[Rfam]
RNA: Selenocysteine transfer RNA
Organism: Anaeramoeba ignava
RNA sequence: GCCAAGAUGAACUUGAUAGGUAUUGAGGGCGGACUUCAAAUCCGUCGAACGAAGCGAUUCGUUAGCAGUUCGAUUCUGCCUUCUUGGC
Numbered sequence: 001g002c003c004a005a006g007a008u009g010a011a012c013u014u015g016a017u018a019g020g021u022a023u024u025g026a027g028g029g030c031g032g033a034c035u036u037c038a039a040a041u042c043c044g045u046c047g048a049a050c051g052a053a054g055c056g057a058u059u060c061g062u063u064a065g066c067a068g069u070u071c072g073a074u075u076c077u078g079c080c081u082u083c084u085u086g087g088c
Stems, first nucleotide, its partner, number of pairs: 001088007009080001012027006028046006048063005065079004